A member of the RNA family "Makes More Granules Regulator RNA (mmgR)" from Sphingobium indicum, 77 nucleotides long. From the family's description: SuhB later renamed mmgR (makes more granules regulator) was a putative non-coding RNA found multiple times in the Agrobacterium tumefaciens genome and related alpha-proteobacteria. The source organism's lineage runs through Bacteria, Sphingomonadales, Sphingobiaceae, Sphingobium and Sphingobium indicum. The base pairs follow the family's consensus structure. Its Rfam clan is "suhB sRNA clan". On this family, see Corbino et al., Genome Biol 2005: "Evidence for a second class of S-adenosylmethionine riboswitches and other regulatory RNA motifs in alpha-proteobacteria".
RNA sequence: GGGCAGUGCCUUUCAGGCAUCCUCUCCUAAACUUUACGGGCCGGUCCUUCACAGGAUCGGCCUUUUUUUUGGGUUAG
Dot-bracket structure: .......((((...))))....................(((((((((......)))))))))...............